Record summary:
tRNA: a 75-nucleotide RNA from Pseudodesulfovibrio piezophilus. Rfam links the family to the GO term triplet codon-amino acid adaptor activity. The organism belongs to Pseudodesulfovibrio piezophilus, within Bacteria. It scores 58 bits against the family's covariance model. It is annotated as a transfer RNA.
RNA sequence: GUCCCCAUCGUCUAGUCUGGCCCAGGACGUCGGCCUUUCACGCCGUUAACAGGGGUUCAAAUCCCCUUGGGGACG
Numbered sequence: 001g002u003c004c005c006c007a008u009c010g011u012c013u014a015g016u017c018u019g020g021c022c023c024a025g026g027a028c029g030u031c032g033g034c035c036u037u038u039c040a041c042g043c044c045g046u047u048a049a050c051a052g053g054g055g056u057u058c059a060a061a062u063c064c065c066c067u068u069g070g071g072g073a074c075g
Stems, first nucleotide, its partner, number of pairs: 001074007010028004031045004051067005